[Rfam]
RNA sequence: CCGGGAGGCUGCAAAUAUGCGUGGUCUCCGACAUUCAUCAUUCAGGCAUAUUGCUUGCUGGAGAGUUUUUCAUGGCAUUGACUGCUGAAAAGAAAGCCGAGAUCGUCAAAGAGUUUGGUCAGGGCGAA
Numbered sequence: 001c002c003g004g005g006a007g008g009c010u011g012c013a014a015a016u017a018u019g020c021g022u023g024g025u026c027u028c029c030g031a032c033a034u035u036c037a038u039c040a041u042u043c044a045g046g047c048a049u050a051u052u053g054c055u056u057g058c059u060g061g062a063g064a065g066u067u068u069u070u071c072a073u074g075g076c077a078u079u080g081a082c083u084g085c086u087g088a089a090a091a092g093a094a095a096g097c098c099g100a101g102a103u104c105g106u107c108a109a110a111g112a113g114u115u116u117g118g119u120c121a122g123g124g125c126g127a128a
Base pairs, nucleotide, nucleotide: 007026008025009024010023011022012021049081062079063078065076
Dot-bracket structure: ......((((((........))))))......................(............((.(..........).)).)...............................................

Shown here is a 128-nucleotide sequence from Salinicola sp. MIT1003, a member of the family "Ribosomal S15 leader". Rfam describes the family as follows. The E. coli Ribosomal S15 gene 5' UTR can form two alternative structures. One that is a series of three hairpins, The other includes a pseudoknot. A reference for the family is Benard et al. (1996), "Pseudoknot and translational control in the expression of the S15 ribosomal protein", Biochimie.